[Rfam]
RNA: Bacterial RNase P class A
Organism: Gemmobacter lutimaris
RNA sequence: GCGGAUGGCUGGAUGACCGCGUGCGUCGCGAGACGUGCGAGGAAAGUCCGGACUCCAUGAAGUAAGGGUGCCGGGUAACGCCCGGCGGGGGCAACCCCAGGGAAAGCGCCACAGAAAACAAACCGCCCUGCUUGCAGGGUAAGGGUGAAACGGUGGGGUAAGAGCCCACCGCGGGACUGGCAACAGGACCGGCAAGGCAAGCCCCACCCGGAGCAAUGCCGAAUAGGGGCCUCGCGCGGAAAGGUCCGACGUUCAGCCGCAAGGCUGUCGGAGACCUCCGCAAGGGAUGCUUCAGCCCAAGAGUGCCCGGGUUGGCAGCUAGAGCGCCGUGGUAACGCGGCGCGCAGAGGAAUGGUCAUCCAGGGGCGGCAACGCCUUGGACAGAAUCCGGCUUACAGGCCAUCCGCGCAC
Numbered sequence: 001g002c003g004g005a006u007g008g009c010u011g012g013a014u015g016a017c018c019g020c021g022u023g024c025g026u027c028g029c030g031a032g033a034c035g036u037g038c039g040a041g042g043a044a045a046g047u048c049c050g051g052a053c054u055c056c057a058u059g060a061a062g063u064a065a066g067g068g069u070g071c072c073g074g075g076u077a078a079c080g081c082c083c084g085g086c087g088g089g090g091g092c093a094a095c096c097c098c099a100g101g102g103a104a105a106g107c108g109c110c111a112c113a114g115a116a117a118a119c120a121a122a123c124c125g126c127c128c129u130g131c132u133u134g135c136a137g138g139g140u141a142a143g144g145g146u147g148a149a150a151c152g153g154u155g156g157g158g159u160a161a162g163a164g165c166c167c168a169c170c171g172c173g174g175g176a177c178u179g180g181c182a183a184c185a186g187g188a189c190c191g192g193c194a195a196g197g198c199a200a201g202c203c204c205c206a207c208c209c210g211g212a213g214c215a216a217u218g219c220c221g222a223a224u225a226g227g228g229g230c231c232u233c234g235c236g237c238g239g240a241a242a243g244g245u246c247c248g249a250c251g252u253u254c255a256g257c258c259g260c261a262a263g264g265c266u267g268u269c270g271g272a273g274a275c276c277u278c279c280g281c282a283a284g285g286g287a288u289g290c291u292u293c294a295g296c297c298c299a300a301g302a303g304u305g306c307c308c309g310g311g312u313u314g315g316c317a318g319c320u321a322g323a324g325c326g327c328c329g330u331g332g333u334a335a336c337g338c339g340g341c342g343c344g345c346a347g348a349g350g351a352a353u354g355g356u357c358a359u360c361c362a363g364g365g366g367c368g369g370c371a372a373c374g375c376c377u378u379g380g381a382c383a384g385a386a387u388c389c390g391g392c393u394u395a396c397a398g399g400c401c402a403u404c405c406g407c408g409c410a411c
Stems, first nucleotide, its partner, number of pairs: 001407010011396001012360007020039008044394003048391005053213004062292001066209005071085005086100001087098004101204002106202002108198003123144002125140006152170006171193001172191003177186003217317004227308004232303001284298003288294001324343008
Dot-bracket structure: ((((((((((((((((((.((((((((....))))))))....[[[.[[[[[((((.....[...((((((((((.....)))))(((((....)))).)((...(((((............((((((((....))))))..)).......((((((.......))))))((((..(((....)))..))).)..)))..)))))))))))))...((((......((((.(...................................................(((.(...].).)))....).)))).....))))......((((((((....))))))))..........)))))))..........................]]]]]]]].).))))))))))....